[Rfam]
RNA sequence: GCACCAUCCCCGGGGAGCGCGCUUGUGCUGAGAGGGAGGGUUUGCAUCCUCCGACCCGUUGAACCUGAACCGAUUAACAUCGGCGGAGGGAGCGGGCGUGCCGGCAAC
Numbered sequence: 001g002c003a004c005c006a007u008c009c010c011c012g013g014g015g016a017g018c019g020c021g022c023u024u025g026u027g028c029u030g031a032g033a034g035g036g037a038g039g040g041u042u043u044g045c046a047u048c049c050u051c052c053g054a055c056c057c058g059u060u061g062a063a064c065c066u067g068a069a070c071c072g073a074u075u076a077a078c079a080u081c082g083g084c085g086g087a088g089g090g091a092g093c094g095g096g097c098g099u100g101c102c103g104g105c106a107a108c
Stems, first nucleotide, its partner, number of pairs: 007096003011058004017028004035052007064089003070083004
Dot-bracket structure: ......(((.((((..((((....))))......(((((((....)))))))..)))).....(((...((((......))))...)))....)))............
The record is a 108-nucleotide sequence from Qipengyuania marisflavi, which matches "TPP riboswitch aptamer (THI element)" in Rfam. The organism belongs to Qipengyuania, within Bacteria.